The family of this 116-nucleotide RNA from Clupea harengus is "Small nucleolar RNA SNORD89". Pairs were carried over by alignment from the consensus structure, which was predicted with RNAalifold. Its family is annotated with RNA processing and nucleolus in the Gene Ontology. It scores 44 bits against the family's covariance model. snoRNA HBII-289 belongs to the family of C/D snoRNAs. A reference for the family is Huttenhofer et al. (2001), "RNomics: an experimental approach that identifies 201 candidates for novel, small, non-messenger RNAs in mouse", EMBO J. The family's RNA type in Rfam is C/D-box small nucleolar RNA.
RNA sequence: GCCAUGACAUGAUGUAAACAAAAGGCCGAAUUGUAGCAUCUCCACCAGGCAGUUUGUUCUCCGUGUGGAGGUGCUUUGACAAAUACCCGACCGAAGUGAUUCACUGAUCAGAUGGC
Numbered sequence: 001g002c003c004a005u006g007a008c009a010u011g012a013u014g015u016a017a018a019c020a021a022a023a024g025g026c027c028g029a030a031u032u033g034u035a036g037c038a039u040c041u042c043c044a045c046c047a048g049g050c051a052g053u054u055u056g057u058u059c060u061c062c063g064u065g066u067g068g069a070g071g072u073g074c075u076u077u078g079a080c081a082a083a084u085a086c087c088c089g090a091c092c093g094a095a096g097u098g099a100u101u102c103a104c105u106g107a108u109c110a111g112a113u114g115g116c
Base pairs, nucleotide, nucleotide: 001116002115003114004113014109025034026033035105036104041099042098043096046093048092049091052074053073055071057069058068059067075090076089078087